[Rfam]
Nucleotides: 134
Stems, first nucleotide, its partner, number of pairs: 003058003007054002016044005022037002025035002069128004074123003078120004086113002089110006
Number, partner (000 for none) and nucleotide at each position: 001000c002000u003058u004057c005056c006000c007054g008053u009000u010000u011000a012000u013000u014000u015000c016044c017043u018042g019041g020040u021000g022037u023036a024000g025035u026034c027000u028000c029000a030000c031000a032000a033000u034026g035025a036023u037022a038000u039000g040020a041019c042018c043017a044016g045000u046000u047000a048000c049000a050000c051000u052000c053008a054007c055000a056005g057004g058003a059000a060000a061000a062000a063000a064000c065000a066000a067000u068000a069128u070127u071126g072125g073000a074123c075122c076121a077000u078120u079119g080118u081117a082000a083000a084000u085000c086113g087112a088000c089110a090109u091108g092107a093106a094105g095000u096000a097000a098000c099000u100000a101000c102000u103000g104000u105094u106093u107092u108091c109090a110089u111000c112087u113086c114000u115000u116000c117081u118080g119079c120078a121076u122075g123074g124000a125072c126071u127070a128069g129000u130000u131000g132000u133000u134000g
Background:
Shown here is a 134-nucleotide RNA sequence from Aotus nancymaae, a member of the family "Small nucleolar RNA SNORA20". Its family is annotated with nucleolus and RNA processing in the Gene Ontology. The source organism's lineage runs through Eukaryota, Eumetazoa, Tetrapoda, Primates and Aotus. ACA20 is a member of the H/ACA class of snoRNA that guide the sites of modification of uridines to pseudouridines. It scores 105 bits against the family's covariance model.